[Rfam]
RNA sequence: CAGCUUUAGCUGGUUGAAUCCGGGUCAAAUUUUAUACGCUAUUUGGUCCCCUUCAACCAGCUGUAGUUG
Numbered sequence: 001c002a003g004c005u006u007u008a009g010c011u012g013g014u015u016g017a018a019u020c021c022g023g024g025u026c027a028a029a030u031u032u033u034a035u036a037c038g039c040u041a042u043u044u045g046g047u048c049c050c051c052u053u054c055a056a057c058c059a060g061c062u063g064u065a066g067u068u069g
Stems, first nucleotide, its partner, number of pairs: 003067003008062011022048002025046006
Dot-bracket structure: ..(((..(((((((((((...((.((((((..........))))))))...)))))))))))..)))..
RNA: mir-133 microRNA precursor family
Organism: Photinus pyralis